[Rfam]
RNA sequence: CCAACGUGGACACCCGGAGAAGUCGCUCUCUCUCGGCUCUGUCCGUGUGGCGCAGGAGCGUAGGCCUGCGGGCCCGUGACGUACGGUCCCUUUCCACGCCGUUGGAGAACAAGCCGGGCUUCGAGCCUGCAGCCUGCAUAUUCCUACUGCUUCUCUGAGCCCUCGGGCCGUGACAGAGGAGACAAACCAUGCAGGAAACAGCC
Numbered sequence: 001c002c003a004a005c006g007u008g009g010a011c012a013c014c015c016g017g018a019g020a021a022g023u024c025g026c027u028c029u030c031u032c033u034c035g036g037c038u039c040u041g042u043c044c045g046u047g048u049g050g051c052g053c054a055g056g057a058g059c060g061u062a063g064g065c066c067u068g069c070g071g072g073c074c075c076g077u078g079a080c081g082u083a084c085g086g087u088c089c090c091u092u093u094c095c096a097c098g099c100c101g102u103u104g105g106a107g108a109a110c111a112a113g114c115c116g117g118g119c120u121u122c123g124a125g126c127c128u129g130c131a132g133c134c135u136g137c138a139u140a141u142u143c144c145u146a147c148u149g150c151u152u153c154u155c156u157g158a159g160c161c162c163u164c165g166g167g168c169c170g171u172g173a174c175a176g177a178g179g180a181g182a183c184a185a186a187c188c189a190u191g192c193a194g195g196a197a198a199c200a201g202c203c
Stems, first nucleotide, its partner, number of pairs: 001105006008044005014036003018029003047097004055089003058084001060082002063077001133195007150181006159168003
Rfam assigns this 203-nucleotide RNA sequence from Pterocles burchelli to the family "Small nucleolar RNA SNORA73 family". Pairs were carried over by alignment from the consensus structure, which is taken from published work. On this family, see Enright et al., RNA 1996: "5'ETS rRNA processing facilitated by four small RNAs: U14, E3, U17, and U3". U17 (SNORA73A and SNORA73B) also known as E1 belongs to the H/ACA class of small nucleolar RNAs (snoRNAs). Vertebrate U17 is intron-encoded and ranges in length from 200-230 nucleotides, longer than most snoRNAs. The source organism's lineage runs through Eukaryota, Vertebrata, Sauropsida, Columbimorphae and Pterocles. Gene Ontology terms of the family: nucleolus and RNA processing. The match comes from Rfam's covariance-model search (167 bits).